[Rfam]
RNA: Guanidine-II riboswitch aptamer (mini-ykkC)
RNA sequence: GUGAGGGGACGGCCCCUCGCUCCCCUUAAAAUCGUCCGGGACGACCCGC
Numbered sequence: 001g002u003g004a005g006g007g008g009a010c011g012g013c014c015c016c017u018c019g020c021u022c023c024c025c026u027u028a029a030a031a032u033c034g035u036c037c038g039g040g041a042c043g044a045c046c047c048g049c
Stems, first nucleotide, its partner, number of pairs: 001020008037048004